The family of this 47-nucleotide sequence from Sediminicurvatus halobius is "Guanidine-II riboswitch aptamer (mini-ykkC)". Taxonomically the source falls in Sediminicurvatus (Bacteria, Pseudomonadati, Pseudomonadota, Gammaproteobacteria). From the family's description: Simpler in structure and has fewer highly conserved nucleotide positions than the ykkC-yxkD leader. Despite this each of its two stem-loop structures directly bind free guanidine. Therefore, mini-ykkC RNA motif represents a distinct class of guanidine-sensing RNAs.

RNA sequence: GUCCCUGGACGACCGGGGCCCCACGGCCCUGGACGAGGACGACCUCG
Numbered sequence: 001g002u003c004c005c006u007g008g009a010c011g012a013c014c015g016g017g018g019c020c021c022c023a024c025g026g027c028c029c030u031g032g033a034c035g036a037g038g039a040c041g042a043c044c045u046c047g
Stems, first nucleotide, its partner, number of pairs: 001020001003018006034047005